[Rfam]
RNA sequence: GAUUUAUAAAGAAGAGGCGAGAGACCAGGCUCUGAGACCCUCUGGCAACCAUUUGUAACUACAAAAAGGUGCCAAAACCUGCCCAAAAAAAUAGGGAGCUAUAAAUU
Numbered sequence: 001g002a003u004u005u006a007u008a009a010a011g012a013a014g015a016g017g018c019g020a021g022a023g024a025c026c027a028g029g030c031u032c033u034g035a036g037a038c039c040c041u042c043u044g045g046c047a048a049c050c051a052u053u054u055g056u057a058a059c060u061a062c063a064a065a066a067a068g069g070u071g072c073c074a075a076a077a078c079c080u081g082c083c084c085a086a087a088a089a090a091a092u093a094g095g096g097a098g099c100u101a102u103a104a105a106u107u
Base pairs, nucleotide, nucleotide: 001107002106003105004104005103006102007101008100013043014042015041016040017039021032022031023030026081027080028079029078044073045072046071047070049069050068052064053063082096083095084094086092